[Rfam]
RNA sequence: CUCUGGAAAGUGGCGCGUUGCCUGUAUCGGCUGCGAGUCCACCGAAGAUGUAACCCGGACCUCCCAAGAGAGAAGGGGAUUCUUUCAGGUCCGAUGACAGAG
Numbered sequence: 001c002u003c004u005g006g007a008a009a010g011u012g013g014c015g016c017g018u019u020g021c022c023u024g025u026a027u028c029g030g031c032u033g034c035g036a037g038u039c040c041a042c043c044g045a046a047g048a049u050g051u052a053a054c055c056c057g058g059a060c061c062u063c064c065c066a067a068g069a070g071a072g073a074a075g076g077g078g079a080u081u082c083u084u085u086c087a088g089g090u091c092c093g094a095u096g097a098c099a100g101a102g
Base pairs, nucleotide, nucleotide: 001102002101003100004099005098012039013038014037041090042089043088044086045085048084050082054077055076
Rfam assigns this 102-nucleotide RNA from Magnetospira sp. QH-2 to the family "Glycine riboswitch aptamer". Pairs were carried over by alignment from the consensus structure.